[Rfam]
RNA sequence: GCACCUGAAUCUUUCCUAUGUCUUGCUGUGCAGUGCAGGUCUGGGGACAGUUGGUGCUACAGCAUUGCAGUGGAAAUCCAGAUGGGUUGCUUUCCCCUGGUUUGGAACUUAUCUCUACACCUCUGCAAUAUUU
Numbered sequence: 001g002c003a004c005c006u007g008a009a010u011c012u013u014u015c016c017u018a019u020g021u022c023u024u025g026c027u028g029u030g031c032a033g034u035g036c037a038g039g040u041c042u043g044g045g046g047a048c049a050g051u052u053g054g055u056g057c058u059a060c061a062g063c064a065u066u067g068c069a070g071u072g073g074a075a076a077u078c079c080a081g082a083u084g085g086g087u088u089g090c091u092u093u094c095c096c097c098u099g100g101u102u103u104g105g106a107a108c109u110u111a112u113c114u115c116u117a118c119a120c121c122u123c124u125g126c127a128a129u130a131u132u133u
Stems, first nucleotide, its partner, number of pairs: 001057005013047006021039002067126004072121001080114008094105002